[Rfam]
RNA sequence: AUGAUAAAUGCGGGAGAGAAUCUUAUAGAUCGCCGAAGGGACAAGCGAUAAGAUAUAGCCUAUCUUUUCGUGAAAUUUUCAGGCAAAAGGACCGUGUUUUGACA
Numbered sequence: 001a002u003g004a005u006a007a008a009u010g011c012g013g014g015a016g017a018g019a020a021u022c023u024u025a026u027a028g029a030u031c032g033c034c035g036a037a038g039g040g041a042c043a044a045g046c047g048a049u050a051a052g053a054u055a056u057a058g059c060c061u062a063u064c065u066u067u068u069c070g071u072g073a074a075a076u077u078u079u080c081a082g083g084c085a086a087a088a089g090g091a092c093c094g095u096g097u098u099u100u101g102a103c104a
Base pairs, nucleotide, nucleotide: 006099007098008097009096010095011094012093013092020030021029022028032084033083034082035080036079039078040077041076045071046070047069048068
RNA: Glycine riboswitch aptamer